[Rfam]
RNA sequence: GUGAAGUUGAUCACAAACAAACAUAUACCCCUUUGUUUGACCGUGAAAAAUUUCUCCCAUCCCCUUUGUUCGUAAAGAAAAAGCUCUGCCCCAUGUGGAGGCAGAGCUUUU
Number, nucleotide and partner (000 for none) at each position: 001g000002u000003g054004a053005a052006g051007u050008u049009g000010a000011u046012c045013a044014c043015a000016a000017a000018c039019a038020a037021a036022c035023a034024u000025a000026u000027a000028c000029c000030c000031c000032u000033u000034u023035g022036u021037u020038u019039g018040a000041c000042c000043g014044u013045g012046a011047a000048a000049a008050a007051u006052u005053u004054c003055u000056c000057c000058c000059a000060u000061c000062c000063c000064c000065u000066u000067u000068g000069u000070u078071c077072g000073u000074a000075a000076a000077g071078a070079a000080a000081a000082a108083g107084c106085u105086c104087u103088g102089c101090c100091c000092c098093a000094u000095g000096u000097g000098g092099a000100g090101g089102c088103a087104g086105a085106g084107c083108u082109u000110u000111u000
RNA: RNA Staph. aureus E (RoxS)
Organism: Bacillus sp. V3-13